The record is a 222-nucleotide RNA sequence from Blautia sp. OF03-15BH, which matches "Clostridiales-1 RNA" in Rfam.

RNA sequence: UGAUGCUAGGGUCAAAAGUUCAAAAAGCCGUUCAUGCUUGCAUGAUAAGGCUUUUGAACUUGGGAUCCGCCAAACAUGAGGUGCAGAACAUCCAGUGGAUGUUCGUUUUGCACCGACAGAAGCGGAGCGUAGACAGUAGCGAUUUACGCAGUAAAUCAGCGGAUUUCGAAUGUUUGUAGAAUUGCGAGAGCUGCUUCACAGCGGAGCAAUUCGUAAGCAUCA
Numbered sequence: 001u002g003a004u005g006c007u008a009g010g011g012u013c014a015a016a017a018g019u020u021c022a023a024a025a026a027g028c029c030g031u032u033c034a035u036g037c038u039u040g041c042a043u044g045a046u047a048a049g050g051c052u053u054u055u056g057a058a059c060u061u062g063g064g065a066u067c068c069g070c071c072a073a074a075c076a077u078g079a080g081g082u083g084c085a086g087a088a089c090a091u092c093c094a095g096u097g098g099a100u101g102u103u104c105g106u107u108u109u110g111c112a113c114c115g116a117c118a119g120a121a122g123c124g125g126a127g128c129g130u131a132g133a134c135a136g137u138a139g140c141g142a143u144u145u146a147c148g149c150a151g152u153a154a155a156u157c158a159g160c161g162g163a164u165u166u167c168g169a170a171u172g173u174u175u176g177u178a179g180a181a182u183u184g185c186g187a188g189a190g191c192u193g194c195u196u197c198a199c200a201g202c203g204g205a206g207c208a209a210u211u212c213g214u215a216a217g218c219a220u221c222a
Base pairs, nucleotide, nucleotide: 001222002221003220004219005218006217007216010067011066012065013064016061017060018059019058020057021056022055024054025053026052027051028050029049031047032045033044034043035042036041071176072175073174074173075172076171077170080167081166179212180211181210182209183208184207185206190202191201192200193199

NCBI's taxonomy places the organism under Bacteria, Bacillati, Bacillota, Lachnospirales, Blautia.
The match comes from Rfam's covariance-model search (97 bits).
The base pairs follow the family's consensus structure, which is taken from published work.
Rfam classes the family as a small RNA.